[Rfam]
Rfam assigns this 174-nucleotide sequence from Scleropages formosus to the family "Small nucleolar RNA SNORD97".
Pairs were carried over by alignment from the consensus structure, which was predicted with WAR.
Rfam links the family to the GO terms RNA processing and nucleolus.
The literature on the family includes a 2003 paper in Nucleic Acids Res by Vitali et al., "Identification of 13 novel human modification guide RNAs".
RNA sequence: AUGCCCGCUGAUUAUGAAAAGACGCGUUAUUCUGAGGGGAAACGGCUGCCAGUGCUCUUUCUCUUCUUGUCUACCUUUUUUUUUAUUUUUUUUUUUUUAAAAAACUCUCCUUCCAUCUCACCUCUGUACCUGGUUGGCAAUCCAGUGAAAGUCAUUAUGUUGAUAUGAGGGCAU
Numbered sequence: 001a002u003g004c005c006c007g008c009u010g011a012u013u014a015u016g017a018a019a020a021g022a023c024g025c026g027u028u029a030u031u032c033u034g035a036g037g038g039g040a041a042a043c044g045g046c047u048g049c050c051a052g053u054g055c056u057c058u059u060u061c062u063c064u065u066c067u068u069g070u071c072u073a074c075c076u077u078u079u080u081u082u083u084u085a086u087u088u089u090u091u092u093u094u095u096u097u098u099a100a101a102a103a104a105c106u107c108u109c110c111u112u113c114c115a116u117c118u119c120a121c122c123u124c125u126g127u128a129c130c131u132g133g134u135u136g137g138c139a140a141u142c143c144a145g146u147g148a149a150a151g152u153c154a155u156u157a158u159g160u161u162g163a164u165a166u167g168a169g170g171g172c173a174u
Stems, first nucleotide, its partner, number of pairs: 001174006035082007